[Rfam]
RNA: CyVA-1 RNA
Organism: Planktothrix tepida
RNA sequence: GUACCGGAUGGAAGUUAUGCCGCUGUGUUCCAUUGUUGCAAACCCAAGGAGAGCGAACUGUCAGGGAUGCGAACGGUAC
Numbered sequence: 001g002u003a004c005c006g007g008a009u010g011g012a013a014g015u016u017a018u019g020c021c022g023c024u025g026u027g028u029u030c031c032a033u034u035g036u037u038g039c040a041a042a043c044c045c046a047a048g049g050a051g052a053g054c055g056a057a058c059u060g061u062c063a064g065g066g067a068u069g070c071g072a073a074c075g076g077u078a079c
Base pairs, nucleotide, nucleotide: 001079002078003077004076005075006074009032010031011030012029037071038070039069040068043065044064
Dot-bracket structure: ((((((..((((................))))....((((..((...................))..))))..))))))